Description
This 268-nucleotide sequence from Nicotiana attenuata belongs to the Rfam family "RNase MRP". Rfam describes the family as follows. RNase MRP is an enzymatically active ribonucleoprotein with two distinct roles in eukaryotes. In mitochondria it plays a direct role in the initiation of mitochondrial DNA replication. By type it is a ribozyme. NCBI's taxonomy places the organism under Eukaryota, Euphyllophyta, lamiids, Solanaceae, Nicotiana. On this family, see Schmitt et al., FASEB J 1993: "Secondary structure of RNase MRP RNA as predicted by phylogenetic comparison". It scores 69 bits against the family's covariance model.
RNA sequence: CGACUGCAAGAUGACGUGAAUGGGCUCCGAUUUAUUCGAUGAGUAGGUGAAGCCCAGGAAAGUCCCCGGGCCGCUUAUGCCAGAGAUGCAUGCUUGGAAACGAGCUAAACUUUCACAGCUUGUGAGUUCCAUUCUUAUACGUGAGAUGGGCUUGAGACGAGGUGGAGCCUAUGGACUCUUGCCGGAAUGCUCUAUUGGCCGAUAGUAAUACAGUUAUUCACGUGGUCCAACUGGACUAUAACUGAACGGGGCUUACACUCUUGCAGUC
Numbered sequence: 001c002g003a004c005u006g007c008a009a010g011a012u013g014a015c016g017u018g019a020a021u022g023g024g025c026u027c028c029g030a031u032u033u034a035u036u037c038g039a040u041g042a043g044u045a046g047g048u049g050a051a052g053c054c055c056a057g058g059a060a061a062g063u064c065c066c067c068g069g070g071c072c073g074c075u076u077a078u079g080c081c082a083g084a085g086a087u088g089c090a091u092g093c094u095u096g097g098a099a100a101c102g103a104g105c106u107a108a109a110c111u112u113u114c115a116c117a118g119c120u121u122g123u124g125a126g127u128u129c130c131a132u133u134c135u136u137a138u139a140c141g142u143g144a145g146a147u148g149g150g151c152u153u154g155a156g157a158c159g160a161g162g163u164g165g166a167g168c169c170u171a172u173g174g175a176c177u178c179u180u181g182c183c184g185g186a187a188u189g190c191u192c193u194a195u196u197g198g199c200c201g202a203u204a205g206u207a208a209u210a211c212a213g214u215u216a217u218u219c220a221c222g223u224g225g226u227c228c229a230a231c232u233g234g235a236c237u238a239u240a241a242c243u244g245a246a247c248g249g250g251g252c253u254u255a256c257a258c259u260c261u262u263g264c265a266g267u268c
Stems, first nucleotide, its partner, number of pairs: 002268010014223006022055004030044006060254003064251004078090002081088002092105005124192003131188005140181002143178001162172004225236004